[Rfam]
The record is a 72-nucleotide RNA from Cyclospora cayetanensis, which matches "tRNA" in Rfam. Rfam classes the family as a transfer RNA.

RNA sequence: UAAAGAGUAGCCAAGUGGUACGGCAACGGAUUUUGAUUUCGUUAUACAUAGGUUCGAUUCCUAUCUCUUUAA
Numbered sequence: 001u002a003a004a005g006a007g008u009a010g011c012c013a014a015g016u017g018g019u020a021c022g023g024c025a026a027c028g029g030a031u032u033u034u035g036a037u038u039u040c041g042u043u044a045u046a047c048a049u050a051g052g053u054u055c056g057a058u059u060c061c062u063a064u065c066u067c068u069u070u071a072a
Base pairs, nucleotide, nucleotide: 001071002070003069004068005067006066007065010024011023012022026042027041028040029039030038048064049063050062051061052060